[Rfam]
RNA sequence: AUAUUGAAAUAUAUAAAAACUUAUAUAAUCCAACAUAUCGGGUUGGAGUCUCUACCUAGCACCAAUGCUAGAUUAUAAGUGACUUAAUUACUUUU
Numbered sequence: 001a002u003a004u005u006g007a008a009a010u011a012u013a014u015a016a017a018a019a020c021u022u023a024u025a026u027a028a029u030c031c032a033a034c035a036u037a038u039c040g041g042g043u044u045g046g047a048g049u050c051u052c053u054a055c056c057u058a059g060c061a062c063c064a065a066u067g068c069u070a071g072a073u074u075a076u077a078a079g080u081g082a083c084u085u086a087a088u089u090a091c092u093u094u095u
Base pairs, nucleotide, nucleotide: 019080020079021078022077023076024075025074029047030046031045032044033043034042056071057070058069059068060067061066
The family of this 95-nucleotide RNA sequence from Mesoplasma lactucae is "Purine riboswitch aptamer". NCBI's taxonomy places the organism under Bacteria, Mycoplasmatota, Mollicutes, Mesoplasma, Mesoplasma lactucae.